[Rfam]
This 182-nucleotide RNA sequence from Menidia menidia belongs to the Rfam family "Small nucleolar RNA SNORA23".
Rfam classes the family as an H/ACA-box small nucleolar RNA.
The organism belongs to Menidia, within Eukaryota.
The members of this family belong to the H/ACA class of snoRNAs which are thought to guide the sites of modification of uridines to pseudouridines. This family includes human snoRNA ACA23 (SNORA23) and mouse snoMBI-1. ACA23 is predicted to guide the pseudouridylation of residue U3737 and U4331 of 28S rRNA.
Pairs were carried over by alignment from the consensus structure, which was predicted with RNAalifold.
Gene Ontology terms of the family: nucleolus and RNA processing.
It scores 91 bits against the family's covariance model.

RNA sequence: GAUGAACGGUGUGCACGGUGAUGGUCUGUGUUAUGUGCCGUUGCUGGACUGUGUUUUGCAGUUUUGGCCACGGUGCUCACGCCACAUCUUCAGCCAUAGAACAUCUGGAGAUCAUAGUACUGGCCUUUGACGUCUUCAUUGACAUCUUACCAUUGUGCCAGCCUCCAAAUUCUCCAACAAAU
Numbered sequence: 001g002a003u004g005a006a007c008g009g010u011g012u013g014c015a016c017g018g019u020g021a022u023g024g025u026c027u028g029u030g031u032u033a034u035g036u037g038c039c040g041u042u043g044c045u046g047g048a049c050u051g052u053g054u055u056u057u058g059c060a061g062u063u064u065u066g067g068c069c070a071c072g073g074u075g076c077u078c079a080c081g082c083c084a085c086a087u088c089u090u091c092a093g094c095c096a097u098a099g100a101a102c103a104u105c106u107g108g109a110g111a112u113c114a115u116a117g118u119a120c121u122g123g124c125c126u127u128u129g130a131c132g133u134c135u136u137c138a139u140u141g142a143c144a145u146c147u148u149a150c151c152a153u154u155g156u157g158c159c160a161g162c163c164u165c166c167a168a169a170u171u172c173u174c175c176a177a178c179a180a181a182u
Base pairs, nucleotide, nucleotide: 013091015089029081030080031079035077036075037074038073039072040071041070043068044067045066046065047064050060051059052058107175108174109173110172111171120161121160122159123158124157127152129146130145132143133142134141